[Rfam]
This 200-nucleotide sequence from Sakesphorus luctuosus belongs to the Rfam family "Small nucleolar RNA SNORA74". The base pairs follow the family's consensus structure, which was predicted with PFOLD. About the family: U19 belongs to the H/ACA class of snoRNAs. snoRNAs bind a number of proteins (including dyskerin, Gar1p and Nop10p in the case of the H/ACA class) to form snoRNP complexes. This class are thought to guide the sites of modification of uridines to pseudouridines by forming direct base pairing interactions with substrate RNAs. Targets may include ribosomal and spliceosomal RNAs but the exact functions of many snoRNAs, including U19, are not confirmed. Co-precipitation of U19 snoRNA with RNase MRP RNA suggests that U19 may be involved in pre-rRNA processing. Lineage of the source: Eukaryota > Sauropsida > Dinosauria > Coelurosauria > Sakesphorus. For this family Rfam cites "Characterization of the intron-encoded U19 RNA, a new mammalian small nucleolar RNA that is not associated with fibrillarin" (Kiss et al., Mol Cell Biol, 1996).
RNA sequence: CCCAGCAGUAGUCAGCUGCCCUGGCUGCCCCGUGCCUGGGCCAGUGUUAUGCUGCUGGAAGAGGAAGGUGCUGCCGAGUCCUCCUGGCACCACCAGUGCCGUCCUGGUGCGGGUGGGGCUGGGUUUGGCAGCGCCCUGCAUGCCUGAGAGUGGAGUAACUCCUGCCUGUGGAGUUAGAGCCUAGAUUGGGUGCAGACAAC
Numbered sequence: 001c002c003c004a005g006c007a008g009u010a011g012u013c014a015g016c017u018g019c020c021c022u023g024g025c026u027g028c029c030c031c032g033u034g035c036c037u038g039g040g041c042c043a044g045u046g047u048u049a050u051g052c053u054g055c056u057g058g059a060a061g062a063g064g065a066a067g068g069u070g071c072u073g074c075c076g077a078g079u080c081c082u083c084c085u086g087g088c089a090c091c092a093c094c095a096g097u098g099c100c101g102u103c104c105u106g107g108u109g110c111g112g113g114u115g116g117g118g119c120u121g122g123g124u125u126u127g128g129c130a131g132c133g134c135c136c137u138g139c140a141u142g143c144c145u146g147a148g149a150g151u152g153g154a155g156u157a158a159c160u161c162c163u164g165c166c167u168g169u170g171g172a173g174u175u176a177g178a179g180c181c182u183a184g185a186u187u188g189g190g191u192g193c194a195g196a197c198a199a200c
Base pairs, nucleotide, nucleotide: 002058003057004056005055006054007053008052009051011050012049015045016044017043018042020040021038023036024035025034068134069133070132071131072130073129074128075127076126083123084122085121086120087119088118090116091115092114094112096110097109098108099107100106136195137194138193139192140191141190143188152181153180156176157175158174159173160172161171162170